[Rfam]
RNA: flg-Rhizobiales RNA
RNA sequence: GAACCACUGCUUGGGAGAGCGUGGUUCACGGCGAUCCGCGAGAGGUCUGGGAGGACCGGGCGCGGGUCCUUAAAGGGAGAACCACCGAUGCAGAAUACGCUUCUGGUCGGCUUGUCGCGGCAGGUCGUGCUCG
Numbered sequence: 001g002a003a004c005c006a007c008u009g010c011u012u013g014g015g016a017g018a019g020c021g022u023g024g025u026u027c028a029c030g031g032c033g034a035u036c037c038g039c040g041a042g043a044g045g046u047c048u049g050g051g052a053g054g055a056c057c058g059g060g061c062g063c064g065g066g067u068c069c070u071u072a073a074a075g076g077g078a079g080a081a082c083c084a085c086c087g088a089u090g091c092a093g094a095a096u097a098c099g100c101u102u103c104u105g106g107u108c109g110g111c112u113u114g115u116c117g118c119g120g121c122a123g124g125u126c127g128u129g130c131u132c133g
Stems, first nucleotide, its partner, number of pairs: 001027007009020004033068006044057005085110005091105005